[Rfam]
RNA sequence: UGCAGCCGUGUCACAUUCGGUGCCCACCAGGCCAUGGCAGGCGCCGGCCCAAAAGGCUGCCACAGAAAUGCUGUGGCUCAUGGGCCCUGAUCCUCUGUGCUGGGCCUCAGGGAUAAAUUUGGUCACGGACACCA
Numbered sequence: 001u002g003c004a005g006c007c008g009u010g011u012c013a014c015a016u017u018c019g020g021u022g023c024c025c026a027c028c029a030g031g032c033c034a035u036g037g038c039a040g041g042c043g044c045c046g047g048c049c050c051a052a053a054a055g056g057c058u059g060c061c062a063c064a065g066a067a068a069u070g071c072u073g074u075g076g077c078u079c080a081u082g083g084g085c086c087c088u089g090a091u092c093c094u095c096u097g098u099g100c101u102g103g104g105c106c107u108c109a110g111g112g113a114u115a116a117a118u119u120u121g122g123u124c125a126c127g128g129a130c131a132c133c134a
Stems, first nucleotide, its partner, number of pairs: 002060004018046007027037002073126006085112005

Record summary:
Shown here is a 134-nucleotide RNA from Suricata suricatta, a member of the family "Small nucleolar RNA SNORA5". It is annotated as an H/ACA-box small nucleolar RNA. Its Rfam clan is "SNORA5 clan". The base pairs follow the family's consensus structure, which was predicted with RNAfold. Rfam describes the family as follows. ACA5 is a member of the H/ACA class of snoRNA that guide the sites of modification of uridines to pseudouridines. Lineage of the source: Eukaryota > Eumetazoa > Theria > Boreoeutheria > Suricata.